Shown here is a 99-nucleotide RNA from Methylophaga frappieri, a member of the family "t44 RNA".
RNA sequence: GUUAUUACGGGACAAAAUCACACAUAUGCCGGCACAGCUAUCGGGGUGCUGCCUGAUUAAAUUCGGGGGGUCGAUGGUUGGGGUGUAUGGAGGAUUAAC
Numbered sequence: 001g002u003u004a005u006u007a008c009g010g011g012a013c014a015a016a017a018u019c020a021c022a023c024a025u026a027u028g029c030c031g032g033c034a035c036a037g038c039u040a041u042c043g044g045g046g047u048g049c050u051g052c053c054u055g056a057u058u059a060a061a062u063u064c065g066g067g068g069g070g071u072c073g074a075u076g077g078u079u080g081g082g083g084u085g086u087a088u089g090g091a092g093g094a095u096u097a098a099c
Stems, first nucleotide, its partner, number of pairs: 023089008035080009048071003052067003

Lineage of the source: Bacteria > Pseudomonadati > Pseudomonadota > Gammaproteobacteria > Methylophaga. On this family, see Tjaden et al., Nucleic Acids Res 2002: "Transcriptome analysis of Escherichia coli using high-density oligonucleotide probe arrays". The match comes from Rfam's covariance-model search (68 bits).